This 363-nucleotide RNA sequence from Desulfurivibrio alkaliphilus belongs to the Rfam family "Bacterial RNase P class A".
[Rfam]
RNA sequence: CGGGGCGGGCGCAUGGUCGCCGGCACUUUGCUACGAGCAAGGGGUCGGAGGAAAGUCCGAACUCCGCAGGGCAGGGAGGUUCGUAACGCGAACCGGGGGUAACCCCAGGGAAAGUGCCACAGAAAUUAUACCGCCGGGCAACCGGUAAGGGUGAAAUGGUGGGGUAAGAGCCCACCGCUUGCCUGGUGACAGGCAAGGCAGGGUAAACCCCUCCCGGAGCAAGAUCAAAUAGGGAAACGUUUGAGGGCGGCCCGCCCGAUGUUUCCGGGUAGAUCGCAUGAGACGCCGGGCAACCGGCGCCCUAGAGAAAUGACCAUGGCCCGGCAACGGGUACAGAAUUCGGCUUACAGCCCGCCCCGAUCC
Numbered sequence: 001c002g003g004g005g006c007g008g009g010c011g012c013a014u015g016g017u018c019g020c021c022g023g024c025a026c027u028u029u030g031c032u033a034c035g036a037g038c039a040a041g042g043g044g045u046c047g048g049a050g051g052a053a054a055g056u057c058c059g060a061a062c063u064c065c066g067c068a069g070g071g072c073a074g075g076g077a078g079g080u081u082c083g084u085a086a087c088g089c090g091a092a093c094c095g096g097g098g099g100u101a102a103c104c105c106c107a108g109g110g111a112a113a114g115u116g117c118c119a120c121a122g123a124a125a126u127u128a129u130a131c132c133g134c135c136g137g138g139c140a141a142c143c144g145g146u147a148a149g150g151g152u153g154a155a156a157u158g159g160u161g162g163g164g165u166a167a168g169a170g171c172c173c174a175c176c177g178c179u180u181g182c183c184u185g186g187u188g189a190c191a192g193g194c195a196a197g198g199c200a201g202g203g204u205a206a207a208c209c210c211c212u213c214c215c216g217g218a219g220c221a222a223g224a225u226c227a228a229a230u231a232g233g234g235a236a237a238c239g240u241u242u243g244a245g246g247g248c249g250g251c252c253c254g255c256c257c258g259a260u261g262u263u264u265c266c267g268g269g270u271a272g273a274u275c276g277c278a279u280g281a282g283a284c285g286c287c288g289g290g291c292a293a294c295c296g297g298c299g300c301c302c303u304a305g306a307g308a309a310a311u312g313a314c315c316a317u318g319g320c321c322c323g324g325c326a327a328c329g330g331g332u333a334c335a336g337a338a339u340u341c342g343g344c345u346u347a348c349a350g351c352c353c354g355c356c357c358c359g360a361u362c363c
Stems, first nucleotide, its partner, number of pairs: 001359010011348001012318007020048005026042005053346003057343005062219004069253004074215005079093005094108001095106004109210002114208002116204003131150002133146005158176006177199001178197008223275004233266006245257004282301001284299006

A search with the family's covariance model found it, with a score of 327 bits.